[Rfam]
Shown here is a 74-nucleotide RNA from Citrobacter sp. JGM124, a member of the family "PyrD leader". Lineage of the source: Bacteria > Pseudomonadati > Gammaproteobacteria > Enterobacteriaceae > Citrobacter.
RNA sequence: AUUCCAUUCCAUCAGGAGAUAGGGAAUAAUACCGCCCCGGUCUGCAUACCGGGAAUCCAGGAGAAGUCAUGUUU
Numbered sequence: 001a002u003u004c005c006a007u008u009c010c011a012u013c014a015g016g017a018g019a020u021a022g023g024g025a026a027u028a029a030u031a032c033c034g035c036c037c038c039g040g041u042c043u044g045c046a047u048a049c050c051g052g053g054a055a056u057c058c059a060g061g062a063g064a065a066g067u068c069a070u071g072u073u074u
Stems, first nucleotide, its partner, number of pairs: 036053006

Pairs were carried over by alignment from the consensus structure, which is taken from published work. The literature on the family includes a 1994 paper in Nucleic Acids Res by Sorensen, "Conformational heterogeneity in the Salmonella typhimurium pyrC and pyrD leader mRNAs produced in vivo". The family's RNA type in Rfam is cis-regulatory leader. Gene Ontology term of the family: regulation of gene expression.